[Rfam]
RNA sequence: GUAGUGGGUAGAGGCUAAGAACUUCGUCCUGUAUGUGGGCACCGUGGGGCGAAGGAAGCCAAUGGUGCGACCGUCUACCGUUUAA
Numbered sequence: 001g002u003a004g005u006g007g008g009u010a011g012a013g014g015c016u017a018a019g020a021a022c023u024u025c026g027u028c029c030u031g032u033a034u035g036u037g038g039g040c041a042c043c044g045u046g047g048g049g050c051g052a053a054g055g056a057a058g059c060c061a062a063u064g065g066u067g068c069g070a071c072c073g074u075c076u077a078c079c080g081u082u083u084a085a
Stems, first nucleotide, its partner, number of pairs: 002084003007079005013060003022054008037072002039068005
A member of the RNA family "c-di-GMP-II-GAG riboswitch aptamer", 85 nucleotides long. Pairs were carried over by alignment from the consensus structure, which is taken from published work. Rfam's curators put it in the seed alignment. Rfam links the family to the GO terms cyclic-di-GMP binding and regulation of gene expression. The literature on the family includes a 2017 paper in Proc Natl Acad Sci U S A by Weinberg et al., "Bioinformatic analysis of riboswitch structures uncovers variant classes with altered ligand specificity".